[Rfam]
The family of this 152-nucleotide RNA sequence from Petrachloros mirabilis is "c-di-AMP riboswitch aptamer (ydaO/yuaA leader)".

RNA sequence: AUCGUUCACUAGCUGGGUUGCUCCCCAUGUUGGAAGACCAGAAGUGAGAGCGGGGGAACCAAGUUUUGGGGCGUAUUCUUGUCACUCACAAGGAAGGGCAUCUCUCAGCUCUAGCCCGUCAGCUAACUCCGUCGGCAUUGAGAGGAGACUGA
Number, nucleotide and partner (000 for none) at each position: 001a000002u049003c048004g000005u000006u000007c000008a000009c000010u000011a000012g000013c000014u000015g000016g000017g000018u000019u000020g000021c000022u000023c000024c000025c000026c000027a000028u000029g000030u000031u000032g000033g000034a000035a000036g000037a000038c000039c000040a000041g000042a000043a000044g000045u000046g000047a000048g003049a002050g132051c131052g130053g129054g128055g127056g000057a000058a000059c000060c068061a067062a000063g000064u000065u000066u000067u061068g060069g117070g116071g115072c000073g000074u000075a000076u000077u093078c092079u091080u090081g000082u000083c000084a000085c000086u000087c000088a000089c000090a080091a079092g078093g077094a000095a000096g111097g110098g109099c108100a000101u000102c000103u000104c000105u000106c000107a000108g099109c098110u097111c096112u000113a000114g000115c071116c070117c069118g000119u000120c000121a000122g000123c000124u000125a000126a000127c055128u054129c053130c052131g051132u050133c000134g000135g000136c000137a000138u000139u000140g000141a000142g000143a000144g000145g000146a000147g000148a000149c000150u000151g000152a000